[Rfam]
RNA sequence: GUGCAGGGUGUUUAGGGUUCCACCGCCAAACGGGCGGGUUCGGUCCGAGAAACGCCACCCACGGGGCAAAUUCCCUGCGGGCACACGGCGGGCCAAAAUCCCGGGAGAC
Numbered sequence: 001g002u003g004c005a006g007g008g009u010g011u012u013u014a015g016g017g018u019u020c021c022a023c024c025g026c027c028a029a030a031c032g033g034g035c036g037g038g039u040u041c042g043g044u045c046c047g048a049g050a051a052a053c054g055c056c057a058c059c060c061a062c063g064g065g066g067c068a069a070a071u072u073c074c075c076u077g078c079g080g081g082c083a084c085a086c087g088g089c090g091g092g093c094c095a096a097a098a099u100c101c102c103g104g105g106a107g108a109c
Stems, first nucleotide, its partner, number of pairs: 007056006015046002020043002022040001023037005058081003062077005084104001086107001090102003